[Rfam]
RNA: M-box riboswitch aptamer (ykoK leader)
Organism: Peptococcaceae bacterium CEB3
RNA sequence: GAUAUUCUUCGUUAGGUGAGGCUUCUGCAUAGAGCAUACGCCACUGCCCAGAAAUGUCGAGAGACGCUAAUGGGUUAACAGGUAUUACCGGCAUAAGGUUUUACUUAAUGUGGCUGGGUAUAACCCUAGCUGUGUACGUGCCAAAACUCAGACGAGUGGAGAAAGGC
Dot-bracket structure: ....(((((((([.(((..(((..((((((((.......(((((.(((((....((((....))))....))))).....((((..(((......])))..))))....))))).(((.....)))...))))))).).)))...)))...))....))))))....